[Rfam]
RNA: mir-199 microRNA precursor family
Organism: Canis lupus
RNA sequence: CCAGUGUUCAGACUACCUGUUCAGGGGGCUCUGAAUGUGUACAGUAGUCUGCACAUUGGUU
Number, nucleotide and partner (000 for none) at each position: 001c059002c058003a057004g056005u055006g054007u053008u000009c051010a050011g049012a048013c047014u046015a045016c000017c044018u043019g042020u041021u000022c039023a038024g000025g000026g000027g000028g000029c000030u000031c000032u000033g000034a000035a000036u000037g000038u023039g022040u000041a020042c019043a018044g017045u015046a014047g013048u012049c011050u010051g009052c000053a007054c006055a005056u004057u003058g002059g001060u000061u000